[Rfam]
Overview:
The family of this 62-nucleotide sequence from Synechococcus sp. CBW1004 is "Glutamine-II riboswitch aptamer". Its family is annotated with glutamine binding in the Gene Ontology. The base pairs follow the family's consensus structure, which is taken from published work.
RNA sequence: GAACGUUGAUCCACCCCCGUGGUGGACGCAGAACGCUCCGCGCCAGGCAACGGGGACGCGGA
Numbered sequence: 001g002a003a004c005g006u007u008g009a010u011c012c013a014c015c016c017c018c019g020u021g022g023u024g025g026a027c028g029c030a031g032a033a034c035g036c037u038c039c040g041c042g043c044c045a046g047g048c049a050a051c052g053g054g055g056a057c058g059c060g061g062a
Stems, first nucleotide, its partner, number of pairs: 004052005010026005037062006043055002